[Rfam]
RNA sequence: AAGGUGAAUGCCGAAAAACCAUUUAAAGAGUAGGCU
Numbered sequence: 001a002a003g004g005u006g007a008a009u010g011c012c013g014a015a016a017a018a019c020c021a022u023u024u025a026a027a028g029a030g031u032a033g034g035c036u
Stems, first nucleotide, its partner, number of pairs: 003020003010035003
DUF805b RNA: a 36-nucleotide RNA sequence from Cytophagales bacterium WSM2-2. Taxonomically the source falls in Cytophagales (Bacteria, Pseudomonadati, Bacteroidota, Cytophagia). Clan: DUF805 clan. The match comes from Rfam's covariance-model search (38 bits). The family's consensus secondary structure is taken from published work.